The record is a 94-nucleotide RNA sequence from Esox lucius, which matches "Vault RNA" in Rfam. Pairs were carried over by alignment from the consensus structure, which is taken from published work. About the family: This family of RNAs are found as part of the enigmatic vault ribonucleoprotein complex. The complex consists of a major vault protein (MVP), two minor vault proteins (VPARP and TEP1), and several small untranslated RNA molecules. It has been suggested that the vault complex is involved in drug resistance.

RNA sequence: GCGCUGGUUUAGCUCAGUGGGUUACUUCUUGUGUAAAAAUUAUUUCAUGGUCUGCAGGCCAGAGGUACGACUCCGGGCGCUGUCCAGUGCUUUU
Numbered sequence: 001g002c003g004c005u006g007g008u009u010u011a012g013c014u015c016a017g018u019g020g021g022u023u024a025c026u027u028c029u030u031g032u033g034u035a036a037a038a039a040u041u042a043u044u045u046c047a048u049g050g051u052c053u054g055c056a057g058g059c060c061a062g063a064g065g066u067a068c069g070a071c072u073c074c075g076g077g078c079g080c081u082g083u084c085c086a087g088u089g090c091u092u093u094u
Stems, first nucleotide, its partner, number of pairs: 002089006012078004017074001019073003027070002030067001